[Rfam]
RNA: Bacterial RNase P class A
RNA sequence: CGAGUAAGACAAAUGGCCGCAGCUGCAGGUGCCGAAAGGCCGCAGGUGAGGAAAGUCCGGGCUUCACAGGGCAGGAUGCCAGAUAACGUCUGGCGGAGGCGACUCCAGGGACAGUGCAACAGAAAUAAACCGCGCGGGGCAGAAGAUGCAGCCGCGUAAGGGUGGAAAGGCAGUGUAAGAGACUACCGCCCGGCUGGCAACAGGCGGGGCACAUGUAAACCCCAUCCGAAGCAAGACCGAACAGAAAGCAUAAGGCGGCCCGUCUGCUUUCGGGUAGGUCGCUAGAGUCUGCCGGCGACGGCAGAAGUGGAUAGAUGGCCAUUCAACGACAUAACCCGGCUUAUCGUUUUGCUCGGAGA
Numbered sequence: 001c002g003a004g005u006a007a008g009a010c011a012a013a014u015g016g017c018c019g020c021a022g023c024u025g026c027a028g029g030u031g032c033c034g035a036a037a038g039g040c041c042g043c044a045g046g047u048g049a050g051g052a053a054a055g056u057c058c059g060g061g062c063u064u065c066a067c068a069g070g071g072c073a074g075g076a077u078g079c080c081a082g083a084u085a086a087c088g089u090c091u092g093g094c095g096g097a098g099g100c101g102a103c104u105c106c107a108g109g110g111a112c113a114g115u116g117c118a119a120c121a122g123a124a125a126u127a128a129a130c131c132g133c134g135c136g137g138g139g140c141a142g143a144a145g146a147u148g149c150a151g152c153c154g155c156g157u158a159a160g161g162g163u164g165g166a167a168a169g170g171c172a173g174u175g176u177a178a179g180a181g182a183c184u185a186c187c188g189c190c191c192g193g194c195u196g197g198c199a200a201c202a203g204g205c206g207g208g209g210c211a212c213a214u215g216u217a218a219a220c221c222c223c224a225u226c227c228g229a230a231g232c233a234a235g236a237c238c239g240a241a242c243a244g245a246a247a248g249c250a251u252a253a254g255g256c257g258g259c260c261c262g263u264c265u266g267c268u269u270u271c272g273g274g275u276a277g278g279u280c281g282c283u284a285g286a287g288u289c290u291g292c293c294g295g296c297g298a299c300g301g302c303a304g305a306a307g308u309g310g311a312u313a314g315a316u317g318g319c320c321a322u323u324c325a326a327c328g329a330c331a332u333a334a335c336c337c338g339g340c341u342u343a344u345c346g347u348u349u350u351g352c353u354c355g356g357a358g359a
Stems, first nucleotide, its partner, number of pairs: 001355010011344001012323007020048002023045004028040001053342003057339005062231004069261004074227005079093005094108001095106004109222002114220002116216003130161002132157006169187002172184003188210001189208004194203003235280004244271006253265004288305007